[Rfam]
RNA sequence: AUAUCCCUCCAUGGGGAGGGACAGCGACAAAACUUGUUUUGUCUCUGGGUGAGGAC
Numbered sequence: 001a002u003a004u005c006c007c008u009c010c011a012u013g014g015g016g017a018g019g020g021a022c023a024g025c026g027a028c029a030a031a032a033c034u035u036g037u038u039u040u041g042u043c044u045c046u047g048g049g050u051g052a053g054g055a056c
Stems, first nucleotide, its partner, number of pairs: 004021007024045001026043007